[Rfam]
RNA: Small nucleolar RNA SNORD42
Organism: Alectura lathami
RNA sequence: GUGCAGAUGAUGUGAACUUUUUUUUUACCCCUGAGUAAACUGAUGUUUUCAAAGGAACCACUGAUGCAC
Numbered sequence: 001g002u003g004c005a006g007a008u009g010a011u012g013u014g015a016a017c018u019u020u021u022u023u024u025u026u027a028c029c030c031c032u033g034a035g036u037a038a039a040c041u042g043a044u045g046u047u048u049u050c051a052a053a054g055g056a057a058c059c060a061c062u063g064a065u066g067c068a069c
Stems, first nucleotide, its partner, number of pairs: 001069005